[Rfam]
RNA sequence: UGGAGUAUAGCCAAGUGGUAAGGCAUCGGUUUUUGGUAUCGGCAUGCAAAGGUUCGAAUCCUUUUACUCCAG
Numbered sequence: 001u002g003g004a005g006u007a008u009a010g011c012c013a014a015g016u017g018g019u020a021a022g023g024c025a026u027c028g029g030u031u032u033u034u035g036g037u038a039u040c041g042g043c044a045u046g047c048a049a050a051g052g053u054u055c056g057a058a059u060c061c062u063u064u065u066a067c068u069c070c071a072g
Stems, first nucleotide, its partner, number of pairs: 001071007010024003026042005048064005
This 72-nucleotide RNA belongs to the Rfam family "tRNA". The base pairs follow the family's consensus structure, which is taken from published work. Its Rfam clan is "tRNA clan".